[Rfam]
RNA sequence: GUGGUGGUAAUGCUUGCUUUAGGGGUAACAUACAGGGCACAUGUUGCCAGUAUUAUCCUUGGGAAGGUCUGAGACAUAGGUAAUCAACCUCUAGAAGGGGGUGCUUCCUAAUGGAGGAGUGGGUCAACAGAAACCAGGCUAAGCUGGGAGUUACAGCAUGUGAUGUCUAUAGACUGAUGCAAAGCUUCCAGUUCUAGUUGAAAGAGACCCAUUACCAGCAAAAGUAGUACAAUUUGCAAGAUGGCCCAAGGGCCAUAACUCAAUUCAGACUACUCUAUCACCAU
Numbered sequence: 001g002u003g004g005u006g007g008u009a010a011u012g013c014u015u016g017c018u019u020u021a022g023g024g025g026u027a028a029c030a031u032a033c034a035g036g037g038c039a040c041a042u043g044u045u046g047c048c049a050g051u052a053u054u055a056u057c058c059u060u061g062g063g064a065a066g067g068u069c070u071g072a073g074a075c076a077u078a079g080g081u082a083a084u085c086a087a088c089c090u091c092u093a094g095a096a097g098g099g100g101g102u103g104c105u106u107c108c109u110a111a112u113g114g115a116g117g118a119g120u121g122g123g124u125c126a127a128c129a130g131a132a133a134c135c136a137g138g139c140u141a142a143g144c145u146g147g148g149a150g151u152u153a154c155a156g157c158a159u160g161u162g163a164u165g166u167c168u169a170u171a172g173a174c175u176g177a178u179g180c181a182a183a184g185c186u187u188c189c190a191g192u193u194c195u196a197g198u199u200g201a202a203a204g205a206g207a208c209c210c211a212u213u214a215c216c217a218g219c220a221a222a223a224g225u226a227g228u229a230c231a232a233u234u235u236g237c238a239a240g241a242u243g244g245c246c247c248a249a250g251g252g253c254c255a256u257a258a259c260u261c262a263a264u265u266c267a268g269a270c271u272a273c274u275c276u277a278u279c280a281c282c283a284u
Stems, first nucleotide, its partner, number of pairs: 001284004007278003014238001021060005036048004069268005079216004088100004102118001104117005119212007139197003241256006
Nuclear RNase P: a 284-nucleotide RNA sequence from Mytilus galloprovincialis. The base pairs follow the family's consensus structure, which is taken from published work. Rfam classes the family as a ribozyme. It scores 135 bits against the family's covariance model. Ribonuclease P (RNase P) is a ubiquitous endoribonuclease, found in archaea, bacteria and eukarya as well as chloroplasts and mitochondria. Rfam 15.1 lists 3,848 matches to the family in 1,862 species.